[Rfam]
RNA sequence: UUACUCUCUCCGUCCCAUAAUAUAAGAGCAUUUUUGACGCUACACUAGUGUAAAAAACGCUCUUAUAUUACGGGACGGAGGGAGUAU
Numbered sequence: 001u002u003a004c005u006c007u008c009u010c011c012g013u014c015c016c017a018u019a020a021u022a023u024a025a026g027a028g029c030a031u032u033u034u035u036g037a038c039g040c041u042a043c044a045c046u047a048g049u050g051u052a053a054a055a056a057a058c059g060c061u062c063u064u065a066u067a068u069u070a071c072g073g074g075a076c077g078g079a080g081g082g083a084g085u086a087u
Base pairs, nucleotide, nucleotide: 003085004084005083007081008080009079010078011077013075014074015073016072019069020068021067022066023065024064025063026062027061028060029059031057032056033055034054035053037051038050039049040048041047